[Rfam]
RNA: Sense overlapping transcript RNA 0042 (sot)
Organism: Halorubrum lacusprofundi
RNA sequence: CCGAAUCUCUCGGUGAAUAGGAGUAACGGCUGGUUGGCACAGCCAUCGACGUUGUUGUUUGACAAGGAAACAGAUGCGUUCGCACCUCAAGAACAGGUAACGUCGUAAACCAAAAUAUCCCAACCCAGCGGUGCGGUGCCGUGGGAAUCCUCGCGCUUCAGCGCGGGGA
Numbered sequence: 001c002c003g004a005a006u007c008u009c010u011c012g013g014u015g016a017a018u019a020g021g022a023g024u025a026a027c028g029g030c031u032g033g034u035u036g037g038c039a040c041a042g043c044c045a046u047c048g049a050c051g052u053u054g055u056u057g058u059u060u061g062a063c064a065a066g067g068a069a070a071c072a073g074a075u076g077c078g079u080u081c082g083c084a085c086c087u088c089a090a091g092a093a094c095a096g097g098u099a100a101c102g103u104c105g106u107a108a109a110c111c112a113a114a115a116u117a118u119c120c121c122a123a124c125c126c127a128g129c130g131g132u133g134c135g136g137u138g139c140c141g142u143g144g145g146a147a148u149c150c151u152c153g154c155g156c157u158u159c160a161g162c163g164c165g166g167g168g169a
Stems, first nucleotide, its partner, number of pairs: 001021002005018002028044005047105006055096006073086001075084003118146004148169009